[Rfam]
The record is a 90-nucleotide sequence from Anisodus acutangulus, which matches "Small nucleolar RNA R44/J54/Z268 family" in Rfam.
RNA sequence: UUUGCAAGUGAUGUUAAAACAGACAGGGACAUCAGAUCUCCAUUAUAGGAGAAAAGAUGACUAGUCUAAUGGGAAUCUCUCUGAUGCAAU
Number, nucleotide and partner (000 for none) at each position: 001u000002u089003u088004g087005c086006a085007a000008g000009u000010g000011a000012u000013g000014u000015u000016a000017a000018a000019a000020c000021a000022g000023a000024c000025a000026g000027g000028g000029a000030c000031a000032u000033c000034a000035g000036a000037u000038c000039u000040c000041c000042a000043u000044u000045a000046u000047a000048g000049g000050a000051g000052a000053a000054a000055a000056g000057a000058u000059g000060a000061c000062u000063a000064g000065u000066c000067u000068a000069a000070u000071g000072g000073g000074a000075a000076u000077c000078u000079c000080u000081c000082u000083g000084a000085u006086g005087c004088a003089a002090u000

About this RNA
NCBI's taxonomy places the organism under Eukaryota, Magnoliopsida, eudicotyledons, Solanoideae, Anisodus. The family is grouped with related families in Rfam's "SNORD74 clan". The family has 29 seed sequences and 1,168 matches in Rfam 15.1.